[Rfam]
RNA: Clostridiales-1 RNA
Nucleotides: 172
Stems, first nucleotide, its partner, number of pairs: 001172007010068004018060003022057002026055005032049001033046005073127008083117004090111002092108007129162007140152004
Number, partner (000 for none) and nucleotide at each position: 001172u002171g003170a004169u005168a006167c007166u008000a009000g010068g011067g012066u013065c014000a015000a016000a017000a018060g019059c020058u021000c022057c023056a024000a025000a026055a027054a028053g029052c030051c031000g032049u033046u034045c035044g036043u037042g038000c039000u040000u041000g042037c043036a044035c045034g046033a047000u048000a049032a050000g051030g052029g053028u054027u055026u056023u057022g058020a059019g060018c061000u062000u063000g064000g065013g066012a067011c068010c069000c070000g071000c072000a073127a074126a075125a076124a077123a078122c079121a080120u081000g082000a083117g084116g085115a086114u087000g088000c089000a090111g091110c092108g093107a094106u095105u096104u097103u098102c099000a100000a101000a102098g103097a104096a105095a106094a107093u108092c109000a110091g111090c112000g113000a114086a115085u116084c117083c118000g119000a120080a121079u122078g123077u124076u125075u126074u127073u128000a129162g130161a131160a132159u133158u134157g135156c136000g137000a138000a139000a140152g141151u142150u143149g144000c145000a146000u147000c148000g149143c150142a151141a152140c153000g154000g155000a156135g157134c158133a159132a160131u161130u162129c163000g164000u165000g166007g167006g168005u169004a170003u171002c172001a